[Rfam]
RNA sequence: GAAACCGUCAAAGGGGAGUAGCCCUCCGCCAUCCCCGGCGGACCCCUGCGUCAACACACUUGGCCGGCAUGGCCAUGGCGCAGGGAGAACGGUCCGUCCUUUCAGGGCGGGGGUUCGGGCGAGACCGAUGGCGCUGCGGCCCCGUUCU
Numbered sequence: 001g002a003a004a005c006c007g008u009c010a011a012a013g014g015g016g017a018g019u020a021g022c023c024c025u026c027c028g029c030c031a032u033c034c035c036c037g038g039c040g041g042a043c044c045c046c047u048g049c050g051u052c053a054a055c056a057c058a059c060u061u062g063g064c065c066g067g068c069a070u071g072g073c074c075a076u077g078g079c080g081c082a083g084g085g086a087g088a089a090c091g092g093u094c095c096g097u098c099c100u101u102u103c104a105g106g107g108c109g110g111g112g113g114u115u116c117g118g119g120c121g122a123g124a125c126c127g128a129u130g131g132c133g134c135u136g137c138g139g140c141c142c143c144g145u146u147c148u
Stems, first nucleotide, its partner, number of pairs: 025042003044085010061075005086148007
Manganese Mn2+ riboswitch aptamer (yybP-ykoY): a 148-nucleotide RNA from Phenylobacterium parvum. The organism belongs to Phenylobacterium, within Bacteria.